[Rfam]
RNA sequence: UAGGGAAGACGGGGUUCGGACCCCCUCCCUGAACCUAGGGUAACUCUACAAGUGGAGGGGGG
Numbered sequence: 001u002a003g004g005g006a007a008g009a010c011g012g013g014g015u016u017c018g019g020a021c022c023c024c025c026u027c028c029c030u031g032a033a034c035c036u037a038g039g040g041u042a043a044c045u046c047u048a049c050a051a052g053u054g055g056a057g058g059g060g061g062g
Stems, first nucleotide, its partner, number of pairs: 008041001010039001012036004016031001018029002022060006

Annotation
The family of this 62-nucleotide RNA sequence from Piliocolobus tephrosceles is "Gag/pol translational readthrough site". Taxonomically the source falls in Piliocolobus (Eukaryota, Chordata, Gnathostomata, Tetrapoda). It scores 69 bits against the family's covariance model. A reference for the family is Wills et al. (1994), "Pseudoknot-dependent read-through of retroviral gag termination codons: importance of sequences in the spacer and loop 2", EMBO J. Its family is annotated with viral translational readthrough in the Gene Ontology.